[Rfam]
RNA: ZMP/ZTP riboswitch aptamer (pfl RNA motif)
RNA sequence: CAAUUUCGUCGCGACUGGCGUUCAGGUGGGCGACCACCGGGGAGCGAACACAACCUUCGACCGCACGCCUGGGCCGAUGUG
Numbered sequence: 001c002a003a004u005u006u007c008g009u010c011g012c013g014a015c016u017g018g019c020g021u022u023c024a025g026g027u028g029g030g031c032g033a034c035c036a037c038c039g040g041g042g043a044g045c046g047a048a049c050a051c052a053a054c055c056u057u058c059g060a061c062c063g064c065a066c067g068c069c070u071g072g073g074c075c076g077a078u079g080u081g
Stems, first nucleotide, its partner, number of pairs: 004052001006050001009047004015041002017069005026037004058076002061073002